[Rfam]
RNA sequence: GCGCCGGUUUAGCUCAGUGGUUACUUCACGCGUCUGCGCAUGAGUCGGGCUCUUCGGAGCUUCGUCUCCAACCACGGGCGCUGCCCGGCGUUUUG
Numbered sequence: 001g002c003g004c005c006g007g008u009u010u011a012g013c014u015c016a017g018u019g020g021u022u023a024c025u026u027c028a029c030g031c032g033u034c035u036g037c038g039c040a041u042g043a044g045u046c047g048g049g050c051u052c053u054u055c056g057g058a059g060c061u062u063c064g065u066c067u068c069c070a071a072c073c074a075c076g077g078g079c080g081c082u083g084c085c086c087g088g089c090g091u092u093u094u095g
Stems, first nucleotide, its partner, number of pairs: 002090006012079004017075004025044004

Shown here is a 95-nucleotide RNA from Polypterus senegalus, a member of the family "Vault RNA". Rfam classes the family as a non-coding RNA gene. About the family: This family of RNAs are found as part of the enigmatic vault ribonucleoprotein complex. The complex consists of a major vault protein (MVP), two minor vault proteins (VPARP and TEP1), and several small untranslated RNA molecules. It has been suggested that the vault complex is involved in drug resistance. Taxonomically the source falls in Polypterus (Eukaryota, Bilateria, Chordata, Cladistia).